Rfam assigns this 75-nucleotide sequence to the family "RAGATH-18 RNA".
The base pairs follow the family's consensus structure, which is taken from published work.
Actinobacteria, Firmicutes, Fusobacteria, Thermotogae (1 example).

RNA sequence: ACUGUGGAGUAUACAAGAACUUGUGAGUAGUAUCUGGAUUUAUCCAGUACAAAAGCAUAUACGGUGAAGCAGUAA
Numbered sequence: 001a002c003u004g005u006g007g008a009g010u011a012u013a014c015a016a017g018a019a020c021u022u023g024u025g026a027g028u029a030g031u032a033u034c035u036g037g038a039u040u041u042a043u044c045c046a047g048u049a050c051a052a053a054a055g056c057a058u059a060u061a062c063g064g065u066g067a068a069g070c071a072g073u074a075a
Base pairs, nucleotide, nucleotide: 001073002072003071004070005069009062010061011060012059013058022057023056024055030050031049032048035046036045
Dot-bracket structure: (((((...(((((........(((.....(((..((........)).)))....))))))))......)))))..